[Rfam]
RNA sequence: GGAAUGAGGAGCGCUUAUGAGCGAAGCGAAUAAUUCAAAUGCGCUCCGACGACCUGCCCCUCUCGCGGAGGCGAGAGGGGCGAUACAUUGA
Numbered sequence: 001g002g003a004a005u006g007a008g009g010a011g012c013g014c015u016u017a018u019g020a021g022c023g024a025a026g027c028g029a030a031u032a033a034u035u036c037a038a039a040u041g042c043g044c045u046c047c048g049a050c051g052a053c054c055u056g057c058c059c060c061u062c063u064c065g066c067g068g069a070g071g072c073g074a075g076a077g078g079g080g081c082g083a084u085a086c087a088u089u090g091a
Base pairs, nucleotide, nucleotide: 008047009046010045011044012043013042016032017031018030021027056081057080058079060077062075065072066071
RNA: GA-cis RNA